RNA sequence: GUGCCGUCUGCCCGGAGGAUUCAACCCGGCAGACGAGGCUGCCGGCCGUCCCGUGGCGCUGGGCUCUCCGCCCGGAACGCCCGCGCCCGGUGCCCUCGUGGAGGUCGGGGAGGAAC
Numbered sequence: 001g002u003g004c005c006g007u008c009u010g011c012c013c014g015g016a017g018g019a020u021u022c023a024a025c026c027c028g029g030c031a032g033a034c035g036a037g038g039c040u041g042c043c044g045g046c047c048g049u050c051c052c053g054u055g056g057c058g059c060u061g062g063g064c065u066c067u068c069c070g071c072c073c074g075g076a077a078c079g080c081c082c083g084c085g086c087c088c089g090g091u092g093c094c095c096u097c098g099u100g101g102a103g104g105u106c107g108g109g110g111a112g113g114a115a116c
Stems, first nucleotide, its partner, number of pairs: 005113001008112002011109004
The record is a 116-nucleotide part of an RNA from Eleutherodactylus coqui, which matches "Eukaryotic large subunit ribosomal RNA" in Rfam.
Lineage of the source: Eukaryota > Metazoa > Bilateria > Vertebrata > Eleutherodactylus.
A search with the family's covariance model found it, with a score of 2432 bits.